[Rfam]
RNA: Glycine riboswitch aptamer
Organism: Actinoplanes regularis
RNA sequence: UAUACCCGCGCGGGAGAGACCUGGAUUCCAUGUUUCAUGGGGUCCAUCGGCGCCGAAGGGGCAAAUCCUCCCCGGAACCUCUCAGGCAAAAGGACCGCGUGGGCAGG
Numbered sequence: 001u002a003u004a005c006c007c008g009c010g011c012g013g014g015a016g017a018g019a020c021c022u023g024g025a026u027u028c029c030a031u032g033u034u035u036c037a038u039g040g041g042g043u044c045c046a047u048c049g050g051c052g053c054c055g056a057a058g059g060g061g062c063a064a065a066u067c068c069u070c071c072c073c074g075g076a077a078c079c080u081c082u083c084a085g086g087c088a089a090a091a092g093g094a095c096c097g098c099g100u101g102g103g104c105a106g107g
Stems, first nucleotide, its partner, number of pairs: 006102008020050002023047001052087003055083002059081003066074001